[Rfam]
RNA sequence: CGUCGCUGCCGCUUCCCGAGGGGAACGGCAGACUGGGGCUCACCGCCCCGGACCGAAGAACAUACAAGCGCUGGCCCACCAUCGAUAGGGCGCCAGCCCAACAAGAAAUUUCGGAUGUACGCAUGCGCCAGGACGACGCAUGAAUCCCC
Numbered sequence: 001c002g003u004c005g006c007u008g009c010c011g012c013u014u015c016c017c018g019a020g021g022g023g024a025a026c027g028g029c030a031g032a033c034u035g036g037g038g039c040u041c042a043c044c045g046c047c048c049c050g051g052a053c054c055g056a057a058g059a060a061c062a063u064a065c066a067a068g069c070g071c072u073g074g075c076c077c078a079c080c081a082u083c084g085a086u087a088g089g090g091c092g093c094c095a096g097c098c099c100a101a102c103a104a105g106a107a108a109u110u111u112c113g114g115a116u117g118u119a120c121g122c123a124u125g126c127g128c129c130a131g132g133a134c135g136a137c138g139c140a141u142g143a144a145u146c147c148c149c
Base pairs, nucleotide, nucleotide: 006031007030008029009028010027011026013025014024015023016022033051034050035049036048037047038046039045122142123141124140125139126138127137129135
This 149-nucleotide RNA sequence from Ectopseudomonas alcaliphila belongs to the Rfam family "proV RNA". The base pairs follow the family's consensus structure, which is taken from published work. Taxonomically the source falls in Ectopseudomonas alcaliphila (Bacteria, Pseudomonadales, Pseudomonadaceae, Ectopseudomonas).